[Rfam]
Nucleotides: 098
Base pairs, nucleotide, nucleotide: 017085018084019083020082022081023080024079025078029049031047032046033045034044035043058075059074060073061072062071063070
Number, partner (000 for none) and nucleotide at each position: 001000a002000c003000a004000c005000u006000g007000g008000a009000a010000a011000c012000a013000u014000a015000g016000u017085u018084u019083g020082c021000a022081g023080a024079u025078a026000u027000a028000a029049u030000c031047g032046g033045u034044u035043a036000a037000a038000a039000a040000u041000g042000g043035u044034a045033a046032c047031c048000a049029a050000g051000u052000u053000u054000c055000u056000a057000c058075c059074g060073c061072a062071c063070g064000c065000c066000u067000a068000a069000a070063u071062g072061u073060g074059c075058g076000a077000c078025u079024a080023u081022c082020g083019c084018a085017a086000c087000g088000g089000a090000c091000a092000c093000u094000a095000g096000u097000g098000g